[Rfam]
RNA sequence: UUACCCUACGGACAACCUGGGUCCGCCGCAUCUCCUGGGACCGUGGGGCUUGGUCGGUUCAGAAACAGCAAGAGUGGCCUCCUCAAAGUGGUCUGUAGCUGAACCGGCCAUCCU
Numbered sequence: 001u002u003a004c005c006c007u008a009c010g011g012a013c014a015a016c017c018u019g020g021g022u023c024c025g026c027c028g029c030a031u032c033u034c035c036u037g038g039g040a041c042c043g044u045g046g047g048g049c050u051u052g053g054u055c056g057g058u059u060c061a062g063a064a065a066c067a068g069c070a071a072g073a074g075u076g077g078c079c080u081c082c083u084c085a086a087a088g089u090g091g092u093c094u095g096u097a098g099c100u101g102a103a104c105c106g107g108c109c110a111u112c113c114u
Stems, first nucleotide, its partner, number of pairs: 003050001004048007016039006052109011
EcpR1: a 114-nucleotide sequence from Cohaesibacter sp. ES.047. Pairs were carried over by alignment from the consensus structure, which was predicted with WAR. Gene Ontology terms of the family: negative regulation of cell cycle, mRNA binding and regulation of translation in response to stress. Rfam's curators write: Perviously named SmelC291, SmrC10, or Sra33. The organism belongs to Cohaesibacter, within Bacteria. The family's RNA type in Rfam is small RNA.